[Rfam]
The record is a 148-nucleotide sequence from Grimontia hollisae, which matches "RtT RNA" in Rfam.
About the family: This family represents a bacterial cis-regulatory element known as RtT RNA. The exact function of RtT is unknown although it is thought that it may be involved in changing the cellular response in relation to amino acid starvation.

RNA sequence: AACAAGCCUUUGGAGAUAGGGAUGCAGAACCCUAGACCCUGGGGGUUCAGCCGAGCGAAGCGAGACAACGUUGCCCGGCGAAGCCGAAAAGGCAACGGCCCGAAGGGCAAGGGAGCUUGCGACCGAGUAAAUCCCUAUCUCUCCGCCA
Numbered sequence: 001a002a003c004a005a006g007c008c009u010u011u012g013g014a015g016a017u018a019g020g021g022a023u024g025c026a027g028a029a030c031c032c033u034a035g036a037c038c039c040u041g042g043g044g045g046u047u048c049a050g051c052c053g054a055g056c057g058a059a060g061c062g063a064g065a066c067a068a069c070g071u072u073g074c075c076c077g078g079c080g081a082a083g084c085c086g087a088a089a090a091g092g093c094a095a096c097g098g099c100c101c102g103a104a105g106g107g108c109a110a111g112g113g114a115g116c117u118u119g120c121g122a123c124c125g126a127g128u129a130a131a132u133c134c135c136u137a138u139c140u141c142u143c144c145g146c147c148a
Stems, first nucleotide, its partner, number of pairs: 015139007023131001035108001037107002046104003052062002069097006
Its family is annotated with cellular response to amino acid starvation in the Gene Ontology. By type it is a cis-regulatory element.